SAM riboswitch aptamer (S box leader): a 114-nucleotide RNA sequence from Bacillus sp. Y1. From the family's description: The SAM riboswitch is found upstream of a number of genes which code for proteins involved in methionine or cysteine biosynthesis in Gram-positive bacteria. Gene Ontology term of the family: regulation of gene expression.
[Rfam]
RNA sequence: UUCUUAUCCAGAGUGGUGGAGGGGCUGGCCCGAUGAUACCCGGCAACCGAUUUUCUUUUUAUAGAAAACACGGUGCCAAUUCCUGCAAAGCAAUUGUGCUUUGACAGAUAAGAA
Dot-bracket structure: ((((((((....(.(((...(((.[.[[)))......))))((((.(((.((((.........)))).)..))))))...(]].]((((((......))))))..)))))))))